[Rfam]
RNA sequence: ACAGCACCAAAGCCGCGAGGCUCACGCCGCACAGGACGCCCCGCGCGUCCAUCUUCGUGAGCGGGCUAAGGUCUGAGCAUUCCAAUCCCUCUCGAUCGACUCUAGCUGGGUCCGGUCUGAACAGACCGAGCGUCGCACCAGAAAUACAGUCCGCCCCAGGGUCAGGCCUGAAGAAGCCGAGCUUGUCUCGGUGGACGCGGGUGAAGCCUCCUUCGGGCCCCGGAGACACGCUUCGGCGUCGAGGGGUGGACGCGGACUUUGGGAUACGGCGCAGGGAUCGGGCGCACCCCGCCCCCUCGUCGGUCUGCGAUUCGUUCGUGGGCCAAGAGGAUCGGUGGGCGUUGCGUCCUUUAGUGCACUUCGCGGCUCGCGCAUAUGGGGCUUCGCGCUCCUGCGAAACUCGAUUCAGACUACUCUGGUGCUGU
Numbered sequence: 001a002c003a004g005c006a007c008c009a010a011a012g013c014c015g016c017g018a019g020g021c022u023c024a025c026g027c028c029g030c031a032c033a034g035g036a037c038g039c040c041c042c043g044c045g046c047g048u049c050c051a052u053c054u055u056c057g058u059g060a061g062c063g064g065g066c067u068a069a070g071g072u073c074u075g076a077g078c079a080u081u082c083c084a085a086u087c088c089c090u091c092u093c094g095a096u097c098g099a100c101u102c103u104a105g106c107u108g109g110g111u112c113c114g115g116u117c118u119g120a121a122c123a124g125a126c127c128g129a130g131c132g133u134c135g136c137a138c139c140a141g142a143a144a145u146a147c148a149g150u151c152c153g154c155c156c157c158a159g160g161g162u163c164a165g166g167c168c169u170g171a172a173g174a175a176g177c178c179g180a181g182c183u184u185g186u187c188u189c190g191g192u193g194g195a196c197g198c199g200g201g202u203g204a205a206g207c208c209u210c211c212u213u214c215g216g217g218c219c220c221c222g223g224a225g226a227c228a229c230g231c232u233u234c235g236g237c238g239u240c241g242a243g244g245g246g247u248g249g250a251c252g253c254g255g256a257c258u259u260u261g262g263g264a265u266a267c268g269g270c271g272c273a274g275g276g277a278u279c280g281g282g283c284g285c286a287c288c289c290c291g292c293c294c295c296c297u298c299g300u301c302g303g304u305c306u307g308c309g310a311u312u313c314g315u316u317c318g319u320g321g322g323c324c325a326a327g328a329g330g331a332u333c334g335g336u337g338g339g340c341g342u343u344g345c346g347u348c349c350u351u352u353a354g355u356g357c358a359c360u361u362c363g364c365g366g367c368u369c370g371c372g373c374a375u376a377u378g379g380g381g382c383u384u385c386g387c388g389c390u391c392c393u394g395c396g397a398a399a400c401u402c403g404a405u406u407c408a409g410a411c412u413a414c415u416c417u418g419g420u421g422c423u424g425u
Base pairs, nucleotide, nucleotide: 001425002424003423004422007419008418009417012367013366014365015364016363017362018361020062021061022060023059024058034050035049036048037047038046039045073409074408075407076406077405081277082276083275098112099111100110101109102108113128114127115126116125117124118123130272131271132270133269134268135267148258149257150256151255152254153253154252368397369396370395371394372393